The family of this 266-nucleotide sequence is "Clostridiales-3 RNA". Rfam classes the family as a small RNA. The base pairs follow the family's consensus structure, which is taken from published work.

RNA sequence: UAGUAGUUCGAAGGAUUGAAAAAUGAAGAACGAGAAGCAGGGCACAAGCACGGUAAAAGGAUUACAGAUAUUGCGAAUGGAUAAUAAACCAUGAAGGUUGAGAGGUUCAACCUUAUCCUCGAAAUGGCAAUAGAGGAGAUAGUGUUACUUGCAAAAUAGUAAGGCGUCAUGAACGCAUUAGGCGGCUCAUUUGUAACUCCCGGGAUGAGAACAUUCCUUAGUGUACGGGGCAAUAGGGACUUGAAACAGUCAACGUACACCUUACA
Number, nucleotide and partner (000 for none) at each position: 001u000002a000003g000004u000005a000006g031007u030008u029009c028010g000011a000012a000013g000014g000015a024016u023017u022018g000019a000020a000021a000022a017023a016024u015025g000026a000027a000028g009029a008030a007031c006032g000033a000034g000035a000036a000037g000038c000039a000040g000041g000042g000043c000044a000045c000046a000047a000048g000049c000050a000051c000052g000053g000054u000055a000056a000057a000058a000059g000060g000061a000062u000063u000064a000065c000066a000067g000068a000069u000070a000071u000072u000073g000074c000075g000076a000077a000078u000079g000080g000081a000082u000083a000084a000085u000086a000087a000088a000089c000090c171091a170092u169093g000094a114095a113096g112097g111098u110099u109100g108101a107102g000103a000104g000105g000106u000107u101108c100109a099110a098111c097112c096113u095114u094115a000116u137117c136118c135119u134120c133121g000122a000123a000124a000125u000126g000127g000128c000129a000130a000131u000132a000133g120134a119135g118136g117137a116138g168139a167140u166141a000142g165143u164144g000145u162146u161147a160148c159149u000150u000151g000152c000153a000154a000155a000156a000157u000158a000159g148160u147161a146162a145163g000164g143165c142166g140167u139168c138169a092170u091171g090172a000173a000174c184175g183176c182177a000178u000179u000180a000181g000182g176183c175184g174185g000186c000187u000188c000189a000190u000191u000192u000193g000194u000195a000196a000197c000198u000199c000200c000201c000202g217203g216204g215205a214206u213207g212208a000209g000210a000211a000212c207213a206214u205215u204216c203217c202218u000219u000220a000221g260222u259223g258224u257225a256226c255227g254228g000229g000230g000231c000232a000233a000234u000235a000236g000237g000238g251239a250240c249241u248242u000243g000244a000245a000246a000247c000248a241249g240250u239251c238252a000253a000254c227255g226256u225257a224258c223259a222260c221261c000262u000263u000264a000265c000266a000